[Rfam]
RNA sequence: AAUAUUAUUUGGCAUAGCUACUGAAAGGUAGUGACGCAAAGCUUUAGGGCCUUUUCCGUUUGGAUGGUAGCCAGCUGCACGA
Numbered sequence: 001a002a003u004a005u006u007a008u009u010u011g012g013c014a015u016a017g018c019u020a021c022u023g024a025a026a027g028g029u030a031g032u033g034a035c036g037c038a039a040a041g042c043u044u045u046a047g048g049g050c051c052u053u054u055u056c057c058g059u060u061u062g063g064a065u066g067g068u069a070g071c072c073a074g075c076u077g078c079a080c081g082a
Base pairs, nucleotide, nucleotide: 012037013036017032018031019030020029021028022027040076041075042074043073047072048071049068050067051066056063057062
A member of the RNA family "c-di-GMP-I riboswitch aptamer" from Eubacterium aggregans, 82 nucleotides long.
On this family, see Weinberg et al., Nucleic Acids Res 2007: "Identification of 22 candidate structured RNAs in bacteria using the CMfinder comparative genomics pipeline".
Gene Ontology term of the family: cyclic-di-GMP binding.
The source organism's lineage runs through Bacteria, Bacillota, Clostridia, Eubacteriaceae and Eubacterium.